[Rfam]
The record is a 268-nucleotide RNA from Sphaerimonospora thailandensis, which matches "HNH endonuclease-associated RNA and ORF (HEARO) RNA" in Rfam.

RNA sequence: GUCAACGACCCCCUCCUGAAGGAGGGGGCUUGAGGUGCGGCUAUGCGUCUUGAAGCCCCGCGUUGACCAGCCCUGGUCGAUCACCUUGAAGGAGGUGCAUUCGAUUGACUACGUUUCACGUAAGUGAGCAGACCCACCGGCAGGUGCUUCCUCAGCCUGCCGCUCUGGAAUCCGUAGGAGCAGACAACCCCGAGGGUGGGGACGAAACGGCUUACGGACUCCCGGUGUCGCCGGGCACUGGCGCGGAACAUGGGCGAGGGGAGACCGC
Numbered sequence: 001g002u003c004a005a006c007g008a009c010c011c012c013c014u015c016c017u018g019a020a021g022g023a024g025g026g027g028g029c030u031u032g033a034g035g036u037g038c039g040g041c042u043a044u045g046c047g048u049c050u051u052g053a054a055g056c057c058c059c060g061c062g063u064u065g066a067c068c069a070g071c072c073c074u075g076g077u078c079g080a081u082c083a084c085c086u087u088g089a090a091g092g093a094g095g096u097g098c099a100u101u102c103g104a105u106u107g108a109c110u111a112c113g114u115u116u117c118a119c120g121u122a123a124g125u126g127a128g129c130a131g132a133c134c135c136a137c138c139g140g141c142a143g144g145u146g147c148u149u150c151c152u153c154a155g156c157c158u159g160c161c162g163c164u165c166u167g168g169a170a171u172c173c174g175u176a177g178g179a180g181c182a183g184a185c186a187a188c189c190c191c192g193a194g195g196g197u198g199g200g201g202a203c204g205a206a207a208c209g210g211c212u213u214a215c216g217g218a219c220u221c222c223c224g225g226u227g228u229c230g231c232c233g234g235g236c237a238c239u240g241g242c243g244c245g246g247a248a249c250a251u252g253g254g255c256g257a258g259g260g261g262a263g264a265c266c267g268c
Stems, first nucleotide, its partner, number of pairs: 001067007010028002012025002015022002029045001031043002070255004075110008113249005119243003123239001134168002138162008148263006171218008188201005
Rfam classes the family as a non-coding RNA gene.